Overview
U5 spliceosomal RNA: a 118-nucleotide RNA from Hevea brasiliensis. The source organism's lineage runs through Eukaryota, Streptophyta, Mesangiospermae, eudicotyledons and Hevea. The match comes from Rfam's covariance-model search (43 bits). The family's RNA type in Rfam is spliceosomal small nuclear RNA. The family's consensus secondary structure is taken from published work. Rfam 15.1 lists 28,527 matches to the family in 2,489 species.
RNA sequence: UUACUAGAGAAUAACACACAACGAAUUAUUCUUUUACCUUUCACUAGAGAAUACAAUGUGCUCACUGUAGAUAGCGGUAUACACGAAUUUUUGAGGGUUCAACUUUAAAAUAUGAGCC
Numbered sequence: 001u002u003a004c005u006a007g008a009g010a011a012u013a014a015c016a017c018a019c020a021a022c023g024a025a026u027u028a029u030u031c032u033u034u035u036a037c038c039u040u041u042c043a044c045u046a047g048a049g050a051a052u053a054c055a056a057u058g059u060g061c062u063c064a065c066u067g068u069a070g071a072u073a074g075c076g077g078u079a080u081a082c083a084c085g086a087a088u089u090u091u092u093g094a095g096g097g098u099u100c101a102a103c104u105u106u107a108a109a110a111u112a113u114g115a116g117c118c
Base pairs, nucleotide, nucleotide: 003078004077005076008068010066012064013062015060016059017058018057027053028052029051030050031049032048033047034046095118097117098116099115100114101113